[Rfam]
Rfam assigns this 368-nucleotide sequence from Bifidobacterium ramosum to the family "Bacterial RNase P class A". By type it is a ribozyme. Rfam links the family to the GO terms ribonuclease P activity, tRNA processing and dimeric ribonuclease P complex. The match comes from Rfam's covariance-model search (297 bits). The source organism's lineage runs through Bacteria, Bacillati, Actinomycetota, Actinomycetes and Bifidobacterium.

RNA sequence: UGAGACCUCUUGAUGGCCGCGGCCCGAUCUUCGAUCCGGGCUGAGGAACUUCCGGGCUCCAUAGAGCACGAUGGCGGAUAACGUCCGCCCAGGGCAACCUGAGAGAUAGCGCAGCAGAGAACAGACCGCCGGCCGCACGGCCGGUAAGGGUGAAACGGCGGUGUAAGAGACCACCGGGCCUCCGGCAACGGCAGGCCGCAUGGCAAGCCUCAUCGGGAGCAAGGCCAAGCAGAAGGCGUUUGAGGGCUGCUCGCCCGAUGCCUUCGGGUAGGCUGCUAGAGCCUGGCGGCGACGUCAGGUCGAGAUGGAUGGCCAUCCGCGCCGCGUAUGCGGCGUGACAGAACCCGGGGUAUAAGAGGUCUCACUUU
Number, nucleotide and partner (000 for none) at each position: 001u364002g363003a362004g361005a360006c359007c358008u357009c356010u355011u000012g317013a316014u315015g314016g313017c312018c311019g000020c043021g042022g041023c040024c039025c038026g037027a000028u000029c000030u000031u000032c000033g000034a000035u000036c000037c026038g025039g024040g023041c022042u021043g020044a000045g000046g000047a000048a351049c350050u349051u000052c348053c347054g346055g345056g344057c219058u218059c217060c216061a000062u000063a000064g252065a251066g250067c249068a000069c215070g214071a213072u212073g211074g088075c087076g086077g085078a084079u000080a000081a000082c000083g000084u078085c077086c076087g075088c074089c103090c101091a100092g099093g098094g000095c000096a000097a000098c093099c092100u091101g090102a000103g089104a210105g209106a000107u000108a000109g208110c207111g204112c203113a000114g000115c000116a000117g000118a000119g000120a000121a000122c000123a000124g000125a000126c149127c148128g145129c144130c143131g142132g141133c140134c139135g000136c000137a000138c000139g134140g133141c132142c131143g130144g129145u128146a000147a000148g127149g126150g000151u000152g000153a000154a000155a000156c000157g175158g174159c000160g172161g171162u170163g000164u000165a000166a000167g000168a000169g000170a162171c161172c160173a000174c158175c157176g199177g197178g196179c195180c194181u193182c191183c190184g189185g000186c000187a000188a000189c184190g183191g182192c000193a181194g180195g179196c178197c177198g000199c176200a000201u000202g000203g112204c111205a000206a000207g110208c109209c105210u104211c073212a072213u071214c070215g069216g060217g059218a058219g057220c000221a000222a000223g274224g273225c272226c271227a000228a000229g000230c000231a000232g265233a264234a263235g262236g261237c260238g000239u000240u000241u000242g000243a000244g256245g255246g254247c253248u000249g067250c066251u065252c064253g247254c246255c245256c244257g000258a000259u000260g237261c236262c235263u234264u233265c232266g000267g000268g000269u000270a000271g226272g225273c224274u223275g000276c000277u000278a000279g000280a000281g300282c299283c298284u297285g296286g295287c294288g293289g000290c000291g000292a000293c288294g287295u286296c285297a284298g283299g282300u281301c000302g000303a000304g000305a000306u000307g000308g000309a000310u000311g018312g017313c016314c015315a014316u013317c012318c000319g000320c000321g000322c000323c000324g000325c000326g000327u000328a000329u000330g000331c000332g000333g000334c000335g000336u000337g000338a000339c000340a000341g000342a000343a000344c056345c055346c054347g053348g052349g050350g049351u048352a000353u000354a000355a010356g009357a008358g007359g006360u005361c004362u003363c002364a001365c000366u000367u000368u000